[Rfam]
Record summary:
The family of this 149-nucleotide RNA sequence from Gossypium anomalum is "MIR8643 microRNA precursor family". The match comes from Rfam's covariance-model search (136 bits). The source organism's lineage runs through Eukaryota, eudicotyledons, Pentapetalae, Malvoideae and Gossypium.
RNA sequence: CAUUUUUUUAACAUAUCAGGAAGUCGAAUUGGCAGUAAAGAAAGAAGCAGGAAGUUGAAAGCCAUCAUUGCCUAUAACCAAAACCCAUAAAUCAAUACCAUGCUUCUUUUUUCACUGACAAUUCGACUUUCUGUUAUGUUAAAAGAAAU
Numbered sequence: 001c002a003u004u005u006u007u008u009u010a011a012c013a014u015a016u017c018a019g020g021a022a023g024u025c026g027a028a029u030u031g032g033c034a035g036u037a038a039a040g041a042a043a044g045a046a047g048c049a050g051g052a053a054g055u056u057g058a059a060a061g062c063c064a065u066c067a068u069u070g071c072c073u074a075u076a077a078c079c080a081a082a083a084c085c086c087a088u089a090a091a092u093c094a095a096u097a098c099c100a101u102g103c104u105u106c107u108u109u110u111u112u113c114a115c116u117g118a119c120a121a122u123u124c125g126a127c128u129u130u131c132u133g134u135u136a137u138g139u140u141a142a143a144a145g146a147a148a149u
Base pairs, nucleotide, nucleotide: 004146005145006144007143008142009141010140011139012138013137014136015135017133018132020130021129022128023127024126025125026124027123028122029121030120031119033117034116035115036114038112039111040110041109042108043107044106045105046104048102049101051099056095